[Rfam]
RNA: Plastid-psbA-1 3UTR RNA
RNA sequence: UUUAUUUAGUACUAUAGUAGUUUUUGAACUAAAAAAGGAGCAAUAGCUUUCCUCUUGUUUUAUCAAGAGGGCGUUAUUGCUCCUUU
Numbered sequence: 001u002u003u004a005u006u007u008a009g010u011a012c013u014a015u016a017g018u019a020g021u022u023u024u025u026g027a028a029c030u031a032a033a034a035a036a037g038g039a040g041c042a043a044u045a046g047c048u049u050u051c052c053u054c055u056u057g058u059u060u061u062a063u064c065a066a067g068a069g070g071g072c073g074u075u076a077u078u079g080c081u082c083c084u085u086u
Stems, first nucleotide, its partner, number of pairs: 034086013049071002052069005